[Rfam]
RNA: mir-11 microRNA precursor family
RNA sequence: GUUGGUGCCGGAACUCUGGCUGUGACCUUGUGCGGUAGCUGGUGUCACAUCACAGACAGAGUUCUAGUUACUAGC
Numbered sequence: 001g002u003u004g005g006u007g008c009c010g011g012a013a014c015u016c017u018g019g020c021u022g023u024g025a026c027c028u029u030g031u032g033c034g035g036u037a038g039c040u041g042g043u044g045u046c047a048c049a050u051c052a053c054a055g056a057c058a059g060a061g062u063u064c065u066a067g068u069u070a071c072u073a074g075c
Stems, first nucleotide, its partner, number of pairs: 004072003008067001010065007020055006030048003